Rfam assigns this 88-nucleotide sequence from Streptomyces collinus to the family "Streptomyces RNA 6106". The base pairs follow the family's consensus structure. Rfam's curators write: Identified by deep sequencing of transcriptome at the end of exponential growth phase. Appears smaller on northern blot than sequencing transcript. This indicates processing step. Streptomyces specific. The family's RNA type in Rfam is small RNA. For this family Rfam cites "Deep sequencing-based identification of small non-coding RNAs in Streptomyces coelicolor" (Vockenhuber et al., RNA Biol, 2011). NCBI's taxonomy places the organism under Bacteria, Actinomycetota, Actinomycetes, Streptomycetaceae, Streptomyces collinus.

[Rfam]
RNA sequence: ACGCCGCCCCCGGGCGGCGUUUCGUGCCCUUCAACGGGCCCAUGAGGCGGGGGUGGUGCCGUGUCGGCGCAGCACCACCCCCAGCCGC
Numbered sequence: 001a002c003g004c005c006g007c008c009c010c011c012g013g014g015c016g017g018c019g020u021u022u023c024g025u026g027c028c029c030u031u032c033a034a035c036g037g038g039c040c041c042a043u044g045a046g047g048c049g050g051g052g053g054u055g056g057u058g059c060c061g062u063g064u065c066g067g068c069g070c071a072g073c074a075c076c077a078c079c080c081c082c083a084g085c086c087g088c
Stems, first nucleotide, its partner, number of pairs: 001020007022045005028038003047085002049082011061070003